RNA sequence: CUUAAAAUAAAGGGGGUCAUUGUAGGAGCGUGCUCGUCGCGGCCCCUGCCUGCCCUUUUCAGGGCUGCAAUUCUACA
Numbered sequence: 001c002u003u004a005a006a007a008u009a010a011a012g013g014g015g016g017u018c019a020u021u022g023u024a025g026g027a028g029c030g031u032g033c034u035c036g037u038c039g040c041g042g043c044c045c046c047u048g049c050c051u052g053c054c055c056u057u058u059u060c061a062g063g064g065c066u067g068c069a070a071u072u073c074u075a076c077a
Stems, first nucleotide, its partner, number of pairs: 013046006021077007028040003050067001052065005

Background: Rfam assigns this 77-nucleotide RNA sequence from Parnassius apollo to the family "Mammalian CPEB3 ribozyme". The literature on the family includes a 2004 paper in Nature by Teixeira et al., "Autocatalytic RNA cleavage in the human beta-globin pre-mRNA promotes transcription termination". Lineage of the source: Eukaryota > Arthropoda > Dicondylia > Parnassius > Parnassius. A search with the family's covariance model found it, with a score of 52 bits.